pan motif: an 88-nucleotide sequence from Bacillus sp. V5-8f. It is annotated as a cis-regulatory element. A search with the family's covariance model found it, with a score of 66 bits.
RNA sequence: UGGGCAGUAUCUUUGCGAACUGCACCUUUCAUGUAUUGAUAAUAGAAUUUUCUGCCUUGAUCCGGAUAUGCCGGACGGGGACGGAGGG
Numbered sequence: 001u002g003g004g005c006a007g008u009a010u011c012u013u014u015g016c017g018a019a020c021u022g023c024a025c026c027u028u029u030c031a032u033g034u035a036u037u038g039a040u041a042a043u044a045g046a047a048u049u050u051u052c053u054g055c056c057u058u059g060a061u062c063c064g065g066a067u068a069u070g071c072c073g074g075a076c077g078g079g080g081a082c083g084g085a086g087g088g
Stems, first nucleotide, its partner, number of pairs: 002026002004023005010018002052084003055080005061075005
Dot-bracket structure: .(((((((.((.....))))))).)).........................((((((((.(((((.....)))))))))).)))....